[Rfam]
RNA sequence: AGCUCAAUGAUCGGAUUCCCUCUAUUUGGGAGAUAUACGCUAUUCUGAUUUUGCAAAUGCGAGCUUCUGAAGAAGAAUGAAAUAUGAGAGCU
Numbered sequence: 001a002g003c004u005c006a007a008u009g010a011u012c013g014g015a016u017u018c019c020c021u022c023u024a025u026u027u028g029g030g031a032g033a034u035a036u037a038c039g040c041u042a043u044u045c046u047g048a049u050u051u052u053g054c055a056a057a058u059g060c061g062a063g064c065u066u067c068u069g070a071a072g073a074a075g076a077a078u079g080a081a082a083u084a085u086g087a088g089a090g091c092u
Stems, first nucleotide, its partner, number of pairs: 001092005
This 92-nucleotide RNA sequence from Spirodela intermedia belongs to the Rfam family "Small nucleolar RNA U54". The base pairs follow the family's consensus structure, which was predicted with PFOLD. The family's RNA type in Rfam is C/D-box small nucleolar RNA. On this family, see Chen et al., Nucleic Acids Res 2003: "The high diversity of snoRNAs in plants: identification and comparative study of 120 snoRNA genes from Oryza sativa". The family is grouped with related families in Rfam's "U54 clan". The match comes from Rfam's covariance-model search (46 bits). Its family is annotated with RNA processing and nucleolus in the Gene Ontology.